Shown here is a 116-nucleotide sequence from Aquibacillus halophilus, a member of the family "epsC RNA". The organism belongs to Aquibacillus, within Bacteria. It scores 100 bits against the family's covariance model. The family's consensus secondary structure is taken from published work. By type it is a cis-regulatory element.

[Rfam]
RNA sequence: UGGUGAUGUCUACUUACCUAUAUCAAAUUGUAGGCACUCGGUCAUGCUGUGGGUUGGAAUCAACCUUAGAUGCGUUCGUUGUCGAAAGUGUGACGUGAGGAUGGGUUAAAUGCCCA
Numbered sequence: 001u002g003g004u005g006a007u008g009u010c011u012a013c014u015u016a017c018c019u020a021u022a023u024c025a026a027a028u029u030g031u032a033g034g035c036a037c038u039c040g041g042u043c044a045u046g047c048u049g050u051g052g053g054u055u056g057g058a059a060u061c062a063a064c065c066u067u068a069g070a071u072g073c074g075u076u077c078g079u080u081g082u083c084g085a086a087a088g089u090g091u092g093a094c095g096u097g098a099g100g101a102u103g104g105g106u107u108a109a110a111u112g113c114c115c116a
Base pairs, nucleotide, nucleotide: 002018003017004016007036008035009034010033011032012031013030037099038098039097040096041094042093043092044091045090046089047088048087051066052065053064054063055062056061069083070082071081072080102116103115104114105113106112